[Rfam]
RNA sequence: AGGUUUGCGCAGUGGCAGUAUCGUAGCCAAUGAGGUUUCUCCGAGGCGCGAUUAUUGCUAAUUGAGACUAUGGUGCAUGUGGAAAUAUGUUGCUAUAUGGAAGUAAAAUAUAAAAAUAUUAGUGGUUUUUUUUUAAAG
Numbered sequence: 001a002g003g004u005u006u007g008c009g010c011a012g013u014g015g016c017a018g019u020a021u022c023g024u025a026g027c028c029a030a031u032g033a034g035g036u037u038u039c040u041c042c043g044a045g046g047c048g049c050g051a052u053u054a055u056u057g058c059u060a061a062u063u064g065a066g067a068c069u070a071u072g073g074u075g076c077a078u079g080u081g082g083a084a085a086u087a088u089g090u091u092g093c094u095a096u097a098u099g100g101a102a103g104u105a106a107a108a109u110a111u112a113a114a115a116a117u118a119u120u121a122g123u124g125g126u127u128u129u130u131u132u133u134u135a136a137a138g
Stems, first nucleotide, its partner, number of pairs: 020052005026047003034042002086110003090106004094101001127138004

A member of the RNA family "U4 spliceosomal RNA" from Neomonachus schauinslandi, 138 nucleotides long. The family is grouped with related families in Rfam's "U4 clan". The base pairs follow the family's consensus structure, which is taken from published work. It scores 69 bits against the family's covariance model.